[Rfam]
RNA sequence: UCUCAGUGAAGGGAUAUUCACUUUCCACCCCCAAUCCAGUUCACCUGGCAAGGUGAACACAUUUGAUCUGGCUUGGGGAGAAGAGUAAAAUUUAUUCCAGAAGAAAUUGUCUUGGGAU
Numbered sequence: 001u002c003u004c005a006g007u008g009a010a011g012g013g014a015u016a017u018u019c020a021c022u023u024u025c026c027a028c029c030c031c032c033a034a035u036c037c038a039g040u041u042c043a044c045c046u047g048g049c050a051a052g053g054u055g056a057a058c059a060c061a062u063u064u065g066a067u068c069u070g071g072c073u074u075g076g077g078g079a080g081a082a083g084a085g086u087a088a089a090a091u092u093u094a095u096u097c098c099a100g101a102a103g104a105a106a107u108u109g110u111c112u113u114g115g116g117a118u
Stems, first nucleotide, its partner, number of pairs: 001117004
Rfam assigns this 118-nucleotide RNA sequence from Mesocricetus auratus to the family "Small nucleolar RNA SNORD22". A reference for the family is Tycowski et al. (1996), "A mammalian gene with introns instead of exons generating stable RNA products", Nature. It is annotated as a C/D-box small nucleolar RNA. It scores 65 bits against the family's covariance model. Its family is annotated with RNA processing and nucleolus in the Gene Ontology.